[Rfam]
RNA: Guanidine-II riboswitch aptamer (mini-ykkC)
RNA sequence: UGAUCGGGACGACCCGGUCAUGUGAUCUUUUAUCGGGACGACCCG
Numbered sequence: 001u002g003a004u005c006g007g008g009a010c011g012a013c014c015c016g017g018u019c020a021u022g023u024g025a026u027c028u029u030u031u032a033u034c035g036g037g038a039c040g041a042c043c044c045g
Stems, first nucleotide, its partner, number of pairs: 001020008034045004